Background: A member of the RNA family "Small nucleolar RNA R38" from Actinomortierella ambigua, 81 nucleotides long. Pairs were carried over by alignment from the consensus structure, which was predicted with PFOLD. Gene Ontology terms of the family: RNA processing and nucleolus. By type it is a C/D-box small nucleolar RNA. It scores 49 bits against the family's covariance model. Rfam describes the family as follows. snoR38 is a C/D box small nucleolar RNA conserved across yeast, human, Arabidopsis and rice. It is encoded in the intron of elongation factor-1 gamma in both pombe and cerevisiae. snoR38 guides the methylation of 2'-O-ribose sites in 28S rRNA.

[Rfam]
RNA sequence: AAAUUGCCAAGAUGAACUUUUUCUUUAUCAGUUAUCCCUGACUUAAUCAACUGUGUCGAGAAUAUGGUAUCUGAGCGAUAU
Numbered sequence: 001a002a003a004u005u006g007c008c009a010a011g012a013u014g015a016a017c018u019u020u021u022u023c024u025u026u027a028u029c030a031g032u033u034a035u036c037c038c039u040g041a042c043u044u045a046a047u048c049a050a051c052u053g054u055g056u057c058g059a060g061a062a063u064a065u066g067g068u069a070u071c072u073g074a075g076c077g078a079u080a081u
Base pairs, nucleotide, nucleotide: 001081003079004078005077006076007075